[Rfam]
RNA sequence: GGGGAUGUAGCUAAGUAGUAGAGCACUUGUCUAGUAUACAGGGGGCUCUGGGUUCCAUCCCCAGCACCACCA
Numbered sequence: 001g002g003g004g005a006u007g008u009a010g011c012u013a014a015g016u017a018g019u020a021g022a023g024c025a026c027u028u029g030u031c032u033a034g035u036a037u038a039c040a041g042g043g044g045g046c047u048c049u050g051g052g053u054u055c056c057a058u059c060c061c062c063a064g065c066a067c068c069a070c071c072a
Stems, first nucleotide, its partner, number of pairs: 001071002004068001006066002010024003026042005048064005
Dot-bracket structure: ((.(.((..(((.........))).(((((.......))))).....(((((.......))))))).).)).
This 72-nucleotide sequence from Marmota marmota belongs to the Rfam family "tRNA". Transfer RNA (tRNA) molecules are approximately 80 nucleotides in length. By type it is a transfer RNA. It scores 49 bits against the family's covariance model.